[Rfam]
Rfam assigns this 168-nucleotide RNA from Leucobacter luti to the family "M-box riboswitch aptamer (ykoK leader)".
Rfam links the family to the GO terms regulation of gene expression and response to magnesium ion.
From the family's description: M-box riboswitch, also know as ykoK leader is described as a metaloregulatory RNA that sense divalent metals and function as a genetic control element of genes related to divalent metal transport in bacteria.
The pairing is the family consensus, mapped onto this sequence.

RNA sequence: GUAGCGCUUCGUUCGGCGAGGCUCCUGCGUGAACACAGUCCGCUCAUCCCACGACGUCGAGAGACGCCCAGGCUGAGGACAGGCCUUCCCGGCUUAAGGGUCGGCCCCAAGCGGAUUCCGAUAUCGGAUACGUCACGCAGUGCCAAAGCUCUGACGUGGAGGUGUCUC
Numbered sequence: 001g002u003a004g005c006g007c008u009u010c011g012u013u014c015g016g017c018g019a020g021g022c023u024c025c026u027g028c029g030u031g032a033a034c035a036c037a038g039u040c041c042g043c044u045c046a047u048c049c050c051a052c053g054a055c056g057u058c059g060a061g062a063g064a065c066g067c068c069c070a071g072g073c074u075g076a077g078g079a080c081a082g083g084c085c086u087u088c089c090c091g092g093c094u095u096a097a098g099g100g101u102c103g104g105c106c107c108c109a110a111g112c113g114g115a116u117u118c119c120g121a122u123a124u125c126g127g128a129u130a131c132g133u134c135a136c137g138c139a140g141u142g143c144c145a146a147a148g149c150u151c152u153g154a155c156g157u158g159g160a161g162g163u164g165u166c167u168c
Stems, first nucleotide, its partner, number of pairs: 005164006011155002013097001015150003020144003025140008039115005045075002048072002055066004082106004088100003117128003